[Rfam]
RNA sequence: GAGCACUUAAGCCCUGAGAACUGAAUUCCAUAGAUGGUGUUCAUAAAGAGUUCAUCUAUGGGCUCAGUUCUUCUGGCAUUGUGUUCAAU
Numbered sequence: 001g002a003g004c005a006c007u008u009a010a011g012c013c014c015u016g017a018g019a020a021c022u023g024a025a026u027u028c029c030a031u032a033g034a035u036g037g038u039g040u041u042c043a044u045a046a047a048g049a050g051u052u053c054a055u056c057u058a059u060g061g062g063c064u065c066a067g068u069u070c071u072u073c074u075g076g077c078a079u080u081g082u083g084u085u086c087a088a089u
Base pairs, nucleotide, nucleotide: 009079011077012076013075017071018070019069020068021067022066023065024064032057033056034055035054
Shown here is an 89-nucleotide sequence from Sinocyclocheilus anshuiensis, a member of the family "mir-146 microRNA precursor family". On this family, see Lagos-Quintana et al., Curr Biol 2002: "Identification of tissue-specific microRNAs from mouse". The match comes from Rfam's covariance-model search (55 bits). Rfam 15.1 lists 1,617 matches to the family in 642 species.